The family of this 588-nucleotide part of an RNA from Camponotus floridanus is "Eukaryotic large subunit ribosomal RNA".
Pairs were carried over by alignment from the consensus structure, which is taken from published work.
A search with the family's covariance model found it, with a score of 2863 bits.
NCBI's taxonomy places the organism under Eukaryota, Eumetazoa, Ecdysozoa, Camponotini, Camponotus.
Its family is annotated with structural constituent of ribosome and ribosome in the Gene Ontology.
RNA sequence: GACUGACGUGGAGAAGGGUUUCGUGUGAACAGCCGUUGCACACGAGUCAGUCGAUCCUAAGCCCUAGGAGAAAUCCUAUGUCAAUGACGGCGUACAAUAUACUCGAGUGUCGAAAACAAAGAUAUAUAUAUGUAUAUGUAAAGAGAAGAAAGAGAUAGAAACGCCGCCGCCGCCGCGCGCGCGCGCGUACUUCCUUUCAUUAUUGACACACAUAUAUUAUUAUUUACGAAUGUAUAUAAUGACACACGCCCGUCGGGCGAAAGGGAAUCCGGUUCCUAUUCCGGAACCCGGCAGCGGAACCGCAUACAAUUCGGGCCCUCGUAAGAGUGUUCGUCGGGGUAACCCAAAAUGACCUGGAGACGCCGUCGGGAGAUCCGGGAAGAGUUUUCUUUUCUGUAUAAGCGUUCGAGUUCCCUGGAAACCUCUAGCAGGGAGAUAGGGUUUGGAACGCGAAGAGCACCGCAGUUGCGGCGGUGUCCGGAUCUUCCCCUCGGACCUUGAAAAUCCAGGAGAGGGCCACGUGGAGGUGUCGCGCCGGUUCGUACCCAUAUCCGCAGCAGGUCUCCAAGGUAAAGAGCCUCUAGUCGA
Numbered sequence: 001g002a003c004u005g006a007c008g009u010g011g012a013g014a015a016g017g018g019u020u021u022c023g024u025g026u027g028a029a030c031a032g033c034c035g036u037u038g039c040a041c042a043c044g045a046g047u048c049a050g051u052c053g054a055u056c057c058u059a060a061g062c063c064c065u066a067g068g069a070g071a072a073a074u075c076c077u078a079u080g081u082c083a084a085u086g087a088c089g090g091c092g093u094a095c096a097a098u099a100u101a102c103u104c105g106a107g108u109g110u111c112g113a114a115a116a117c118a119a120a121g122a123u124a125u126a127u128a129u130a131u132g133u134a135u136a137u138g139u140a141a142a143g144a145g146a147a148g149a150a151a152g153a154g155a156u157a158g159a160a161a162c163g164c165c166g167c168c169g170c171c172g173c174c175g176c177g178c179g180c181g182c183g184c185g186c187g188u189a190c191u192u193c194c195u196u197u198c199a200u201u202a203u204u205g206a207c208a209c210a211c212a213u214a215u216a217u218u219a220u221u222a223u224u225u226a227c228g229a230a231u232g233u234a235u236a237u238a239a240u241g242a243c244a245c246a247c248g249c250c251c252g253u254c255g256g257g258c259g260a261a262a263g264g265g266a267a268u269c270c271g272g273u274u275c276c277u278a279u280u281c282c283g284g285a286a287c288c289c290g291g292c293a294g295c296g297g298a299a300c301c302g303c304a305u306a307c308a309a310u311u312c313g314g315g316c317c318c319u320c321g322u323a324a325g326a327g328u329g330u331u332c333g334u335c336g337g338g339g340u341a342a343c344c345c346a347a348a349a350u351g352a353c354c355u356g357g358a359g360a361c362g363c364c365g366u367c368g369g370g371a372g373a374u375c376c377g378g379g380a381a382g383a384g385u386u387u388u389c390u391u392u393u394c395u396g397u398a399u400a401a402g403c404g405u406u407c408g409a410g411u412u413c414c415c416u417g418g419a420a421a422c423c424u425c426u427a428g429c430a431g432g433g434a435g436a437u438a439g440g441g442u443u444u445g446g447a448a449c450g451c452g453a454a455g456a457g458c459a460c461c462g463c464a465g466u467u468g469c470g471g472c473g474g475u476g477u478c479c480g481g482a483u484c485u486u487c488c489c490c491u492c493g494g495a496c497c498u499u500g501a502a503a504a505u506c507c508a509g510g511a512g513a514g515g516g517c518c519a520c521g522u523g524g525a526g527g528u529g530u531c532g533c534g535c536c537g538g539u540u541c542g543u544a545c546c547c548a549u550a551u552c553c554g555c556a557g558c559a560g561g562u563c564u565c566c567a568a569g570g571u572a573a574a575g576a577g578c579c580u581c582u583a584g585u586c587g588a
Stems, first nucleotide, its partner, number of pairs: 001586004010566004016546002021045006030038002052542003056264002061258002063080001065078001067076003089249001268285005288538004325533001327531001329528002336345003353510006363494003368489005375481003379397001381395003402451005413441005422432003458476006552561002568580004
Dot-bracket structure: ((((.....((((..((...((((((...((.....)).))))))......(((.((...(((.(.(((....))).).)........(...............................................................................................................................................................).......))....))...(((((........)))))..((((.................................(.(.((.....(((....))).......((((((....(((..(((((..(((.(.(((.........))).)....(((((......(((((....(((.....)))....))))).....)))))......((((((.......))))))..)))...)))))..)))..........))))))................))..).).)))).)))..)).....((......)).)))).((((.....))))..))))..